This 153-nucleotide RNA from Paenibacillus polymyxa belongs to the Rfam family "c-di-AMP riboswitch aptamer (ydaO/yuaA leader)". Rfam 15.1 lists 7,607 matches to the family in 2,262 species. About the family: This family represents a conserved RNA structure found upstream of the ydaO and yuaA genes in Bacillus subtilis and related genes in other bacteria. Its family is annotated with regulation of gene expression and cyclic-di-AMP binding in the Gene Ontology. The organism belongs to Paenibacillus polymyxa, within Bacteria.

[Rfam]
RNA sequence: UAUACAUUUAAGCCGAAUUUCUAUGAGAAAACGGGGGAACCAUGUUACUGGGGUGAAUUUUACAGCCGAUCCUGAUGGACCGGAAGUGUAAAUAGGGCAUACUGUGCUGUCCGAAUCCGUCAGCUAACCUCGUAGGCUGUGGGCAGGAACCAA
Dot-bracket structure: ..........((((...(((.......)))((((((....((......))(((.....((((((......................))))))..((((..........))))...))).........)))))).))))...............
Numbered sequence: 001u002a003u004a005c006a007u008u009u010a011a012g013c014c015g016a017a018u019u020u021c022u023a024u025g026a027g028a029a030a031a032c033g034g035g036g037g038a039a040c041c042a043u044g045u046u047a048c049u050g051g052g053g054u055g056a057a058u059u060u061u062a063c064a065g066c067c068g069a070u071c072c073u074g075a076u077g078g079a080c081c082g083g084a085a086g087u088g089u090a091a092a093u094a095g096g097g098c099a100u101a102c103u104g105u106g107c108u109g110u111c112c113g114a115a116u117c118c119g120u121c122a123g124c125u126a127a128c129c130u131c132g133u134a135g136g137c138u139g140u141g142g143g144c145a146g147g148a149a150c151c152a153a
Stems, first nucleotide, its partner, number of pairs: 011138004018030003031133006041050002051118003059092006095112004